[Rfam]
Source information: The record is a 115-nucleotide RNA from Momordica charantia, which matches "Small nucleolar RNA Z278" in Rfam. The family has 7 seed sequences and 1,130 matches in Rfam 15.1. Taxonomically the source falls in Momordica (Eukaryota, Mesangiospermae, Cucurbitales, Cucurbitaceae). Rfam classes the family as a C/D-box small nucleolar RNA. snoZ278 is a C/D box small nucleolar RNA. Its methylation guide targets have not been reported. A reference for the family is Chen et al. (2003), "The high diversity of snoRNAs in plants: identification and comparative study of 120 snoRNA genes from Oryza sativa", Nucleic Acids Res.
RNA sequence: GCCGAUGAUGACUCAAUCCAUCUUGUUUGAGACUUCGUGGAGCUAAGUCCCUGUUUCAGGGAGAACCUACUUGGUGAAGCGAUGUUCAUGCGAUAUUAAUGGAUUUAACCGAGGC
Numbered sequence: 001g002c003c004g005a006u007g008a009u010g011a012c013u014c015a016a017u018c019c020a021u022c023u024u025g026u027u028u029g030a031g032a033c034u035u036c037g038u039g040g041a042g043c044u045a046a047g048u049c050c051c052u053g054u055u056u057c058a059g060g061g062a063g064a065a066c067c068u069a070c071u072u073g074g075u076g077a078a079g080c081g082a083u084g085u086u087c088a089u090g091c092g093a094u095a096u097u098a099a100u101g102g103a104u105u106u107a108a109c110c111g112a113g114g115c
Stems, first nucleotide, its partner, number of pairs: 001115003049061005